[Rfam]
RNA sequence: GAGAACUGAACACAAGAUUAGUCGAAUGAAGGGGUAACGCCCUGAAAGGCUAUCCUAAUACUCCGACUGGCAUCAAUGUGAGCAAACACUAAGGUGUCAGACGCUCGGUGAAGUCGGCAGAGAGAUACCGUAACCGAUUGGUCGAAAGUCACUCAGAGGUGAGUGAUGUAUCCUAUAUGCCGGGGUCUAUAAA
Numbered sequence: 001g002a003g004a005a006c007u008g009a010a011c012a013c014a015a016g017a018u019u020a021g022u023c024g025a026a027u028g029a030a031g032g033g034g035u036a037a038c039g040c041c042c043u044g045a046a047a048g049g050c051u052a053u054c055c056u057a058a059u060a061c062u063c064c065g066a067c068u069g070g071c072a073u074c075a076a077u078g079u080g081a082g083c084a085a086a087c088a089c090u091a092a093g094g095u096g097u098c099a100g101a102c103g104c105u106c107g108g109u110g111a112a113g114u115c116g117g118c119a120g121a122g123a124g125a126u127a128c129c130g131u132a133a134c135c136g137a138u139u140g141g142u143c144g145a146a147a148g149u150c151a152c153u154c155a156g157a158g159g160u161g162a163g164u165g166a167u168g169u170a171u172c173c174u175a176u177a178u179g180c181c182g183g184g185g186u187c188u189a190u191a192a193a
Stems, first nucleotide, its partner, number of pairs: 019052005031043004055185002063108004067100008077092001115182005124172005129144002148167008
RNA: Group II catalytic intron D1-D4-5
Organism: Clostridium perfringens